[Rfam]
Nucleotides: 113
Stems, first nucleotide, its partner, number of pairs: 003111002038073004
Number, partner (000 for none) and nucleotide at each position: 001000a002000g003111g004110c005000g006000a007000u008000g009000a010000u011000g012000a013000g014000u015000c016000a017000a018000g019000u020000c021000u022000a023000g024000u025000c026000u027000g028000a029000c030000c031000u032000g033000g034000u035000a036000u037000u038073g039072c040071u041070g042000c043000a044000a045000c046000g047000u048000c049000c050000u051000g052000g053000c054000u055000c056000u057000g058000a059000c060000c061000a062000g063000g064000a065000c066000g067000u068000u069000u070041u071040g072039g073038c074000u075000c076000u077000g078000a079000c080000c081000a082000g083000g084000a085000c086000g087000u088000g089000a090000u091000c092000a093000c094000g095000u096000a097000a098000u099000c100000u101000u102000c103000u104000c105000u106000c107000u108000g109000a110004g111003c112000a113000g
Z30 small nucleolar RNA: a 113-nucleotide RNA sequence from Varanus komodoensis. Rfam links the family to the GO terms nucleolus and RNA processing. The family's RNA type in Rfam is C/D-box small nucleolar RNA. A search with the family's covariance model found it, with a score of 82 bits. Lineage of the source: Eukaryota > Teleostomi > Euteleostomi > Unidentata > Varanus.